[Rfam]
RNA: TPP riboswitch aptamer (THI element)
RNA sequence: UUUGAGCACUAGGGGGGCUGGUGUGGCCAGCUGAGAUUAAGACCCGUUAAACGUCUUUGACCCUUGGAACCUGAUCUGGUUUAUACCAGCGUAGGGAAGUGACUGCCGCAUGAA
Dot-bracket structure: ......((((((((.((((((.....))))).......((((...........)))))..)))).....((((..((((......))))..))))..)))).............
Numbered sequence: 001u002u003u004g005a006g007c008a009c010u011a012g013g014g015g016g017g018c019u020g021g022u023g024u025g026g027c028c029a030g031c032u033g034a035g036a037u038u039a040a041g042a043c044c045c046g047u048u049a050a051a052c053g054u055c056u057u058u059g060a061c062c063c064u065u066g067g068a069a070c071c072u073g074a075u076c077u078g079g080u081u082u083a084u085a086c087c088a089g090c091g092u093a094g095g096g097a098a099g100u101g102a103c104u105g106c107c108g109c110a111u112g113a114a
Stems, first nucleotide, its partner, number of pairs: 007101004011064004016058001017031005039057004070095004076089004